RNA: Purine riboswitch aptamer
RNA sequence: AAUUUUAUACAAUAUAUCACUCGUAUAUACUCGGAAAUAAGGUCUGAGAGUUUCUACCGAGAUACCGUAAAUAUCUUGACUAUGAGUGAAAUUAUUAUUAGC
Numbered sequence: 001a002a003u004u005u006u007a008u009a010c011a012a013u014a015u016a017u018c019a020c021u022c023g024u025a026u027a028u029a030c031u032c033g034g035a036a037a038u039a040a041g042g043u044c045u046g047a048g049a050g051u052u053u054c055u056a057c058c059g060a061g062a063u064a065c066c067g068u069a070a071a072u073a074u075c076u077u078g079a080c081u082a083u084g085a086g087u088g089a090a091a092u093u094a095u096u097a098u099u100a101g102c
Stems, first nucleotide, its partner, number of pairs: 018088008030048006058078007